[Rfam]
RNA sequence: AUUCAGGGGCAAGGUUCCACAUAUGAAGGGUGUCAGGUUCGGAAGAAAGCAGCACUAAGUAUGCUGGGGCUUGUGCCUCUUUUUUUU
Numbered sequence: 001a002u003u004c005a006g007g008g009g010c011a012a013g014g015u016u017c018c019a020c021a022u023a024u025g026a027a028g029g030g031u032g033u034c035a036g037g038u039u040c041g042g043a044a045g046a047a048a049g050c051a052g053c054a055c056u057a058a059g060u061a062u063g064c065u066g067g068g069g070c071u072u073g074u075g076c077c078u079c080u081u082u083u084u085u086u087u
Stems, first nucleotide, its partner, number of pairs: 001086001005080005010073001012072006020063005029056005038047003
Bacterial small signal recognition particle RNA: an 87-nucleotide RNA sequence from Pilibacter termitis. For this family Rfam cites "SRPDB: Signal Recognition Particle Database" (Rosenblad et al., Nucleic Acids Res, 2003). Gene Ontology terms of the family: signal recognition particle, plasma membrane targeting and SRP-dependent cotranslational protein targeting to membrane, signal sequence recognition. Taxonomically the source falls in Pilibacter (Bacteria, Bacillati, Bacilli, Enterococcaceae). Rfam classes the family as a non-coding RNA gene. Pairs were carried over by alignment from the consensus structure, which is taken from published work. Its Rfam clan is "SRP clan". The signal recognition particle (SRP) is a universally conserved ribonucleoprotein involved in the co-translational targeting of proteins to membranes.